A member of the RNA family "ZMP/ZTP riboswitch aptamer (pfl RNA motif)" from Paenalicyclobacillus macrosporangiidus, 81 nucleotides long.
A search with the family's covariance model found it, with a score of 65 bits.
NCBI's taxonomy places the organism under Bacteria, Bacillati, Bacilli, Caryophanales, Paenalicyclobacillus.
The family's consensus secondary structure is taken from published work.

RNA sequence: AAUCCCCCGCAUGACUGGCGGAACCGUGGAGCACCACGAGGGAGUGCGGGGUUGAACAUGCCGGCCGCCUGGGCACCUGUG
Number, nucleotide and partner (000 for none) at each position: 001a000002a000003u000004c000005c051006c050007c049008c048009g047010c046011a045012u044013g000014a000015c041016u040017g069018g068019c067020g066021g065022a000023a000024c000025c000026g037027u036028g035029g034030a000031g000032c000033a000034c029035c028036a027037c026038g000039a000040g016041g015042g000043a000044g012045u011046g010047c009048g008049g007050g006051g005052u000053u000054g000055a000056a000057c000058a000059u075060g074061c073062c072063g000064g000065c021066c020067g019068c018069c017070u000071g000072g062073g061074c060075a059076c000077c000078u000079g000080u000081g000